[Rfam]
RNA sequence: UCUAACAGAACAUACUUCUUUAUAGUUCCAUAGUUGUUAUUUACAAAGCUUAUGGAAUGUAAAGAAGUAUGUGUUGUAGGU
Numbered sequence: 001u002c003u004a005a006c007a008g009a010a011c012a013u014a015c016u017u018c019u020u021u022a023u024a025g026u027u028c029c030a031u032a033g034u035u036g037u038u039a040u041u042u043a044c045a046a047a048g049c050u051u052a053u054g055g056a057a058u059g060u061a062a063a064g065a066a067g068u069a070u071g072u073g074u075u076g077u078a079g080g081u
Base pairs, nucleotide, nucleotide: 007075008074010072011071012070013069014068015067016066017065018064019063020062021061022060023059024058028055029054030053031052032051

Overview
This 81-nucleotide RNA sequence from Holothuria leucospilota belongs to the Rfam family "mir-1 microRNA precursor family". The organism belongs to Holothuria, within Eukaryota. A reference for the family is Lee and Ambros (2001), "An extensive class of small RNAs in Caenorhabditis elegans", Science. Rfam describes the family as follows. This family represents the microRNA (miRNA) mir-1 family. miRNAs are transcribed as ~70nt precursors (modelled here) and subsequently processed by the Dicer enzyme to give a ~22nt product. In this case the mature sequence comes from the 3' arm of the precursor. The extents of the hairpin precursors are not generally known and are estimated based on hairpin prediction. The products are thought to have regulatory roles through complementarity to mRNA. The involvement of Dicer in miRNA processing suggests a relationship with the phenomenon of RNA interference. miRNAs are numbered based on the sequence of the mature RNA. This family also contains the mir-206 from human, which appears to be related to mir-1.